Small nucleolar RNA SNORD73: a 71-nucleotide RNA sequence from Cyprinodon variegatus.
Gene Ontology terms of the family: RNA processing and nucleolus.
The source organism's lineage runs through Eukaryota, Opisthokonta, Ctenosquamata, Cyprinodontini and Cyprinodon.
By type it is a C/D-box small nucleolar RNA.

RNA sequence: AACACUUGAUGACAAACUGUUUCGGUCCCAUAUGACUGCCUGAUUACUGCAUAUUGAGAUCAGCUGAUGUU
Dot-bracket structure: ((((...............................................................))))